[Rfam]
RNA sequence: AAAAAGGGCAGGCCUUGCCUAAGGCACAGUACGGGCGGCACAUGCCUCCUUUGUGGUGAAUCGCGAUCAAGAGAUUUGCCCUGCAUAAUUUCUGAGCGGCCGCGUUGGAAUGGGUCUGUGAGGCUAAUUCCACCGG
Number, nucleotide and partner (000 for none) at each position: 001a000002a000003a000004a000005a000006g000007g000008g084009c083010a082011g081012g080013c024014c023015u022016u021017g000018c000019c000020u000021a016022a015023g014024g013025c055026a054027c053028a052029g051030u000031a050032c000033g048034g046035g045036c044037g043038g000039c000040a000041c000042a000043u037044g036045c035046c034047u000048c033049c000050u031051u029052u028053g027054u026055g025056g079057u078058g077059a076060a075061u074062c073063g000064c000065g000066a000067u000068c000069a000070a000071g000072a000073g062074a061075u060076u059077u058078g057079c056080c012081c011082u010083g009084c008085a000086u000087a000088a000089u000090u000091u000092c000093u000094g000095a000096g000097c000098g000099g000100c000101c000102g134103c000104g133105u132106u000107g131108g130109a129110a128111u127112g000113g000114g124115u123116c122117u121118g000119u000120g000121a117122g116123g115124c114125u000126a000127a111128u110129u109130c108131c107132a105133c104134c102135g000136g000

Rfam assigns this 136-nucleotide RNA from Phytophthora infestans to the family "U11 spliceosomal RNA". The sequence is in the family's curated seed alignment.